[Rfam]
RNA sequence: CAUUUUACAGGAAAUGGUGUCUUCCUGCACAAGAACCGUCUUCGCCUGAUCUUUACAUAGGCAAGUCUGAUGGCGCCUGCAAAUAA
Numbered sequence: 001c002a003u004u005u006u007a008c009a010g011g012a013a014a015u016g017g018u019g020u021c022u023u024c025c026u027g028c029a030c031a032a033g034a035a036c037c038g039u040c041u042u043c044g045c046c047u048g049a050u051c052u053u054u055a056c057a058u059a060g061g062c063a064a065g066u067c068u069g070a071u072g073g074c075g076c077c078u079g080c081a082a083a084u085a086a
Stems, first nucleotide, its partner, number of pairs: 010025004016077006038067001040065002
The family of this 86-nucleotide RNA from Chitinophaga agri is "Fluoride riboswitch aptamer (crcB RNA motif)". The family's consensus secondary structure is taken from published work. The match comes from Rfam's covariance-model search (40 bits). Gene Ontology terms of the family: positive regulation of gene expression and response to fluoride. The source organism's lineage runs through Bacteria, Pseudomonadati, Bacteroidota, Chitinophagaceae and Chitinophaga.